[Rfam]
RNA sequence: AAAAUUCUUCAGGGCGGGGUGUAAUUCCCCACUGGCGGUAAAGCCCGCGAGCCAUAAUGGCAGAUUUGGUGUAAUUCCAAAGCCAACAGUAUAGUCUGGAUGAAAGAAGAUAGGU
Numbered sequence: 001a002a003a004a005u006u007c008u009u010c011a012g013g014g015c016g017g018g019g020u021g022u023a024a025u026u027c028c029c030c031a032c033u034g035g036c037g038g039u040a041a042a043g044c045c046c047g048c049g050a051g052c053c054a055u056a057a058u059g060g061c062a063g064a065u066u067u068g069g070u071g072u073a074a075u076u077c078c079a080a081a082g083c084c085a086a087c088a089g090u091a092u093a094g095u096c097u098g099g100a101u102g103a104a105a106g107a108a109g110a111u112a113g114g115u
Stems, first nucleotide, its partner, number of pairs: 006110005017029003031095002033085002035048004043083002051061003065081005087098003
Dot-bracket structure: .....(((((......(((.......))).[[((((((....[[))))..(((.....)))...(((((.......)))))]])).(((....]]))).......))))).....